[Rfam]
RNA sequence: AAGAAAGUGACUGCCGCCCCGCACAGGGGCGAAGCCAAUAGACCAAUAUCAAAACAAGUUUCAUAGAAGCCGAAGCGCAUCAAACGGUUCAACAAACCCCAACCCCAAGCGCCAACG
Numbered sequence: 001a002a003g004a005a006a007g008u009g010a011c012u013g014c015c016g017c018c019c020c021g022c023a024c025a026g027g028g029g030c031g032a033a034g035c036c037a038a039u040a041g042a043c044c045a046a047u048a049u050c051a052a053a054a055c056a057a058g059u060u061u062c063a064u065a066g067a068a069g070c071c072g073a074a075g076c077g078c079a080u081c082a083a084a085c086g087g088u089u090c091a092a093c094a095a096a097c098c099c100c101a102a103c104c105c106c107a108a109g110c111g112c113c114a115a116c117g
Base pairs, nucleotide, nucleotide: 012079013078014077015031016030017029018028019027020026058071061069100109
Notes: The family of this 117-nucleotide sequence from Caballeronia glathei is "Burkholderia sRNA Bp1_Cand684_SIPHT". Lineage of the source: Bacteria > Pseudomonadati > Burkholderiales > Burkholderiaceae > Caballeronia. Rfam classes the family as a small RNA. A reference for the family is Khoo et al. (2012), "Computational discovery and RT-PCR validation of novel Burkholderia conserved and Burkholderia pseudomallei unique sRNAs", BMC Genomics.